[Rfam]
RNA sequence: CAUUGAUGUGAUGAUAUCUUGUUUCCGAAUUUACGAGUGUGGACUAUAAACAAUCAGACUACAAUUAUCUGAUCAAUG
Numbered sequence: 001c002a003u004u005g006a007u008g009u010g011a012u013g014a015u016a017u018c019u020u021g022u023u024u025c026c027g028a029a030u031u032u033a034c035g036a037g038u039g040u041g042g043a044c045u046a047u048a049a050a051c052a053a054u055c056a057g058a059c060u061a062c063a064a065u066u067a068u069c070u071g072a073u074c075a076a077u078g
Stems, first nucleotide, its partner, number of pairs: 001078006
Small nucleolar RNA Z155: a 78-nucleotide sequence from Arachis hypogaea. Rfam 15.1 lists 429 matches to the family in 196 species. It scores 54 bits against the family's covariance model. Taxonomically the source falls in Arachis (Eukaryota, Fabales, Fabaceae, dalbergioids sensu lato). It is annotated as a C/D-box small nucleolar RNA. The pairing is the family consensus, mapped onto this sequence.